This 367-nucleotide RNA sequence from Victivallis vadensis belongs to the Rfam family "Bacterial RNase P class A". The family's RNA type in Rfam is ribozyme. NCBI's taxonomy places the organism under Bacteria, Pseudomonadati, Lentisphaeria, Victivallaceae, Victivallis. A search with the family's covariance model found it, with a score of 210 bits.
RNA sequence: ACAUCAGCCGUGGGCAAUCGCGGACAGCUGGGCAACCCGCCGUUCGAGGAAAGUCCGGACUGCAGAGAGCAGGGAGUCCUUUUGAAAAGAAGGAUAUCGCGGACCAUACGCCGCGAGAAGGCCAGUGCAACAGAAAGCAAACCGCCUCCGGCUUCGGCUGAAGGUAAGGGUGAAAGGGUGGGGUAAGAGCCCACCGGGCGCGCAGCGAGAGCGGCGCCGCAUGGUAAACCCCUCCCGCAGCAAGACCAAAUAGGGGAUGAUGCCGCUGCUCGCGGCGCUAUCAGUCCCGGGUUCUGGUCGCAUAGACAGAUGAUUGCCGUUCCGCUUCGGCGGGAUACAGAAUCCGGCUUACAGCGGCGAUGUGCUU
Dot-bracket structure: (((((.(((((((((((((.(((((.((..........)).)))))....[[[.[[[[[((((...[[[[.((((((((((........)))))(.((((((........))))))..)((...((((.............((((((.((((....)))).))))..)).......((((((.......))))))..(.((((.((....)).))))..)...))..)))))))))))))...((((......(((((...(((((.]]]]))))).......))))).......))))............)))))))........................]]]]]]]].).))))))))))....